The record is a 233-nucleotide RNA from Desulfosporosinus youngiae, which matches "BsrG" in Rfam. On this family, see Saito et al., Gene 2008: "Novel small RNA-encoding genes in the intergenic regions of Bacillus subtilis". bsrE, bsrG and bsrH pair through intermolecular interactions with antisense sRNAs. Pairs were carried over by alignment from the consensus structure, which was predicted with WAR. The family's RNA type in Rfam is small RNA. Lineage of the source: Bacteria > Bacillati > Clostridia > Desulfosporosinus > Desulfosporosinus youngiae.

RNA sequence: UAACAGAAAAGGCUUGCAGGGCGGUCGGCAUUCCUCCGAAGGGAGGUGAUGCCGUGGAAGUAUACCAAACUUUGAUGCUGAUGAUUUCAUUUGCAACAUUGGUGGUGUUAAUACUUUCAUUCCAUAAACGGAAAUAGACCGCCUCACAGCAAAGGUUCGGUCUAUUCCGUACUUUUGAAGCCGUCCGCUCUUUAAGCGGCUGUUAUAUUGGAGUCAUGCGAGUAACAUGACUC
Numbered sequence: 001u002a003a004c005a006g007a008a009a010a011g012g013c014u015u016g017c018a019g020g021g022c023g024g025u026c027g028g029c030a031u032u033c034c035u036c037c038g039a040a041g042g043g044a045g046g047u048g049a050u051g052c053c054g055u056g057g058a059a060g061u062a063u064a065c066c067a068a069a070c071u072u073u074g075a076u077g078c079u080g081a082u083g084a085u086u087u088c089a090u091u092u093g094c095a096a097c098a099u100u101g102g103u104g105g106u107g108u109u110a111a112u113a114c115u116u117u118c119a120u121u122c123c124a125u126a127a128a129c130g131g132a133a134a135u136a137g138a139c140c141g142c143c144u145c146a147c148a149g150c151a152a153a154g155g156u157u158c159g160g161u162c163u164a165u166u167c168c169g170u171a172c173u174u175u176u177g178a179a180g181c182c183g184u185c186c187g188c189u190c191u192u193u194a195a196g197c198g199g200c201u202g203u204u205a206u207a208u209u210g211g212a213g214u215c216a217u218g219c220g221a222g223u224a225a226c227a228u229g230a231c232u233c
Stems, first nucleotide, its partner, number of pairs: 001205006009184001011182004019145001020143004029048002031045005056118007070083001095108001158169003185199004211233008